RNA sequence: GACGCUAAACCCCUUGCGGAAUAAGCGUAGCGGACCCGGGGGCAGUACCCGGCGCCUCCACCAUUUUCACGGCCCGGCCCUUGUGGCCCGUGCCGGUCCGGGGGCGAAACAGGAUCGACGCGCGUGGUAAAGGCCUGGGUUGUGUUCGGUAUGGUACCCGCCGUUAUCGGGCCGAAACCUACAAGUGCCAACGACAACGUUGAGUACGCCGCUGCGGCUUAA
Numbered sequence: 001g002a003c004g005c006u007a008a009a010c011c012c013c014u015u016g017c018g019g020a021a022u023a024a025g026c027g028u029a030g031c032g033g034a035c036c037c038g039g040g041g042g043c044a045g046u047a048c049c050c051g052g053c054g055c056c057u058c059c060a061c062c063a064u065u066u067u068c069a070c071g072g073c074c075c076g077g078c079c080c081u082u083g084u085g086g087c088c089c090g091u092g093c094c095g096g097u098c099c100g101g102g103g104g105c106g107a108a109a110c111a112g113g114a115u116c117g118a119c120g121c122g123c124g125u126g127g128u129a130a131a132g133g134c135c136u137g138g139g140u141u142g143u144g145u146u147c148g149g150u151a152u153g154g155u156a157c158c159c160g161c162c163g164u165u166a167u168c169g170g171g172c173c174g175a176a177a178c179c180u181a182c183a184a185g186u187g188c189c190a191a192c193g194a195c196a197a198c199g200u201u202g203a204g205u206a207c208g209c210c211g212c213u214g215c216g217g218c219u220u221a222a
Base pairs, nucleotide, nucleotide: 001146002145003144004143005142016134017133026124027123028122030121031120032119036052037051038050039049040048053106054105055104056103057102058101059100147163148162149161150160